[Rfam]
RNA: SAM-I/IV (S-adenosyl methionine) riboswitch aptamer
RNA sequence: UCACAACAUCACGAGAGGCCCGGUUCGCCGGGUCCGGCAACCUGGGACGGACACCCAAGGUGCUCAUCCACCGGAGACGGUGGGGAUGUGGCCCGAGAGGGCAACGAAGUGUCCGCCGG
Numbered sequence: 001u002c003a004c005a006a007c008a009u010c011a012c013g014a015g016a017g018g019c020c021c022g023g024u025u026c027g028c029c030g031g032g033u034c035c036g037g038c039a040a041c042c043u044g045g046g047a048c049g050g051a052c053a054c055c056c057a058a059g060g061u062g063c064u065c066a067u068c069c070a071c072c073g074g075a076g077a078c079g080g081u082g083g084g085g086a087u088g089u090g091g092c093c094c095g096a097g098a099g100g101g102c103a104a105c106g107a108a109g110u111g112u113c114c115g116c117c118g119g
Stems, first nucleotide, its partner, number of pairs: 006089005015035001017034007036064003041060003044056003049113002091102004